RNA sequence: CUCUUAUUAAGAGCGGCUGAGGGAUUAGGCCCUGUGAAGCCCGGCAACCUUCAAACGUCAGUUUGAAAAGGUGCUACGUCCUACAGAUCUUACUGAUCUGAAAGAUAAGAG
Numbered sequence: 001c002u003c004u005u006a007u008u009a010a011g012a013g014c015g016g017c018u019g020a021g022g023g024a025u026u027a028g029g030c031c032c033u034g035u036g037a038a039g040c041c042c043g044g045c046a047a048c049c050u051u052c053a054a055a056c057g058u059c060a061g062u063u064u065g066a067a068a069a070g071g072u073g074c075u076a077c078g079u080c081c082u083a084c085a086g087a088u089c090u091u092a093c094u095g096a097u098c099u100g101a102a103a104g105a106u107a108a109g110a111g
Stems, first nucleotide, its partner, number of pairs: 001111008013042001015041003021032003026083004043075004048071002050067004079103001084100006
RNA: SAM riboswitch aptamer (S box leader)
Organism: Salimicrobium jeotgali